This 97-nucleotide sequence from Bifidobacterium boum belongs to the Rfam family "Bacterial small signal recognition particle RNA". For this family Rfam cites "SRPDB: Signal Recognition Particle Database" (Rosenblad et al., Nucleic Acids Res, 2003). It is annotated as a non-coding RNA gene. The signal recognition particle (SRP) is a universally conserved ribonucleoprotein involved in the co-translational targeting of proteins to membranes. Lineage of the source: Bacteria > Bacillati > Actinomycetes > Bifidobacteriales > Bifidobacterium.
RNA sequence: CAUACGCCUCCGCAUGGCGUUACGUCACCCAACUCCCCCAGGGCAGGAAUGCAGCAAGGGUAAGUGGCCUCUGACGGGUGUGCGGAGGUUUUCUUUU
Numbered sequence: 001c002a003u004a005c006g007c008c009u010c011c012g013c014a015u016g017g018c019g020u021u022a023c024g025u026c027a028c029c030c031a032a033c034u035c036c037c038c039c040a041g042g043g044c045a046g047g048a049a050u051g052c053a054g055c056a057a058g059g060g061u062a063a064g065u066g067g068c069c070u071c072u073g074a075c076g077g078g079u080g081u082g083c084g085g086a087g088g089u090u091u092u093c094u095u096u097u
Stems, first nucleotide, its partner, number of pairs: 004091001006089009015078001018076005024068005035060003043052003